[Rfam]
RNA sequence: UUAGCUAUUUUAGAUAGGUUUGUAUUCACAACAUUGUGGGUGCAAACAGAACCAAUGGUUUGUAUCUAUGAUGGCUAGAGGAUUUUGUCUUGAACAAAAACGCCACGUAGAAAAUUCGCUAAGUGGCUAAAUAAGUAAUUUUUUGAUUGCGUAUUUCCGUCCAUUUAGAUGAAUUGUCUAAAUGGACUUUUUGUUUUCAA
Numbered sequence: 001u002u003a004g005c006u007a008u009u010u011u012a013g014a015u016a017g018g019u020u021u022g023u024a025u026u027c028a029c030a031a032c033a034u035u036g037u038g039g040g041u042g043c044a045a046a047c048a049g050a051a052c053c054a055a056u057g058g059u060u061u062g063u064a065u066c067u068a069u070g071a072u073g074g075c076u077a078g079a080g081g082a083u084u085u086u087g088u089c090u091u092g093a094a095c096a097a098a099a100a101c102g103c104c105a106c107g108u109a110g111a112a113a114a115u116u117c118g119c120u121a122a123g124u125g126g127c128u129a130a131a132u133a134a135g136u137a138a139u140u141u142u143u144u145g146a147u148u149g150c151g152u153a154u155u156u157c158c159g160u161c162c163a164u165u166u167a168g169a170u171g172a173a174u175u176g177u178c179u180a181a182a183u184g185g186a187c188u189u190u191u192u193g194u195u196u197u198c199a200a
Stems, first nucleotide, its partner, number of pairs: 001078007011068006018047012050060003082148001084146002087143001100128001102127005108121003149178001153174003